[Rfam]
RNA sequence: AAAAAGGGUGUUUGUCUCUUAGUGACACACGUACCGAUAUCGGUACGUGGGGUAUGGAAAUCAAGACAUACCCAACACGAAAUUUUUGUUCCUGCGGGGCUGUUUUUUGGCAUUGAACCAAAGACGCCCCC
Numbered sequence: 001a002a003a004a005a006g007g008g009u010g011u012u013u014g015u016c017u018c019u020u021a022g023u024g025a026c027a028c029a030c031g032u033a034c035c036g037a038u039a040u041c042g043g044u045a046c047g048u049g050g051g052g053u054a055u056g057g058a059a060a061u062c063a064a065g066a067c068a069u070a071c072c073c074a075a076c077a078c079g080a081a082a083u084u085u086u087u088g089u090u091c092c093u094g095c096g097g098g099g100c101u102g103u104u105u106u107u108u109g110g111c112a113u114u115g116a117a118c119c120a121a122a123g124a125c126g127c128c129c130c131c
Stems, first nucleotide, its partner, number of pairs: 008078005013027004028049009050073007097129004102125005108120003111115001
RNA: U11 spliceosomal RNA